Source information
The family of this 263-nucleotide RNA sequence from Clostridium sp. D5 is "Bacterial large signal recognition particle RNA". The signal recognition particle (SRP) is a universally conserved ribonucleoprotein involved in the co-translational targeting of proteins to membranes. Lineage of the source: Bacteria > Bacillati > Bacillota > Eubacteriales > Clostridium. The family's consensus secondary structure is taken from published work. The family's RNA type in Rfam is non-coding RNA gene.
RNA sequence: UCGUGCAGCCGGGGUGUUAGCGGUACCUUGUACCUGCAAUCCGCUAUAGCAGGGGUGAUAUUACGCAGAGGGUGCUGAUUUGCAGAGCUGCCCUUGGAAAGUGGCGUUGAGAUCUGGGUCUUACGCGACGGGAAUCUGUGAACCGUGUCAGGUCGGGAACGAAGCAGCACUAAGCAGAACCUUCCGGGUGCCGUAAGGGUGCCUGGGUUGAGUUAACUGCCGAGGUAACGUUUGUGGAGAUGCAUUCGAAGCGUAAUGCACGU
Number, nucleotide and partner (000 for none) at each position: 001u000002c262003g261004u260005g259006c258007a257008g056009c055010c054011g029012g028013g027014g026015u025016g024017u023018u022019a000020g000021c000022g018023g017024u016025a015026c014027c013028u012029u011030g000031u000032a000033c053034c052035u051036g050037c049038a000039a000040u000041c000042c000043g000044c000045u000046a000047u000048a000049g037050c036051a035052g034053g033054g010055g009056u008057g000058a000059u000060a000061u256062u255063a254064c253065g252066c251067a000068g000069a000070g247071g246072g245073u244074g243075c000076u000077g241078a000079u239080u238081u237082g000083c000084a000085g233086a232087g000088c000089u227090g226091c000092c000093c224094u223095u222096g221097g220098a000099a000100a000101g217102u216103g214104g213105c212106g000107u000108u000109g000110a000111g209112a208113u207114c206115u205116g204117g203118g202119u201120c197121u196122u195123a194124c193125g192126c188127g000128a000129c186130g185131g184132g183133a182134a000135u178136c177137u176138g175139u174140g000141a000142a000143c000144c000145g170146u169147g168148u167149c000150a000151g000152g000153u162154c161155g160156g000157g000158a000159a000160c155161g154162a153163a000164g000165c000166a000167g148168c147169a146170c145171u000172a000173a000174g139175c138176a137177g136178a135179a000180c000181c000182u133183u132184c131185c130186g129187g000188g126189u000190g000191c000192c125193g124194u123195a122196a121197g120198g000199g000200u000201g119202c118203c117204u116205g115206g114207g113208u112209u111210g000211a000212g105213u104214u103215a000216a102217c101218u000219g000220c097221c096222g095223a094224g093225g000226u090227a089228a000229c000230g000231u000232u086233u085234g000235u000236g000237g081238a080239g079240a000241u077242g000243c074244a073245u072246u071247c070248g000249a000250a000251g066252c065253g064254u063255a062256a061257u007258g006259c005260a004261c003262g002263u000